[Rfam]
This 86-nucleotide RNA sequence from Qingshengfaniella alkalisoli belongs to the Rfam family "Glycine riboswitch aptamer". It scores 66 bits against the family's covariance model. The family has 44 seed sequences and 9,425 matches in Rfam 15.1.
RNA sequence: GUCACCACCCCGGGAGAGAGCGGAUCGCCGCCACCGAAGGAGCAAUCGCCCCGAAAACUCUCAGGUUCCAGGACCGGGCUGGGUUA
Numbered sequence: 001g002u003c004a005c006c007a008c009c010c011c012g013g014g015a016g017a018g019a020g021c022g023g024a025u026c027g028c029c030g031c032c033a034c035c036g037a038a039g040g041a042g043c044a045a046u047c048g049c050c051c052c053g054a055a056a057a058c059u060c061u062c063a064g065g066u067u068c069c070a071g072g073a074c075c076g077g078g079c080u081g082g083g084u085u086a
Stems, first nucleotide, its partner, number of pairs: 006081002009078005020031004033066003036062002040060003046054002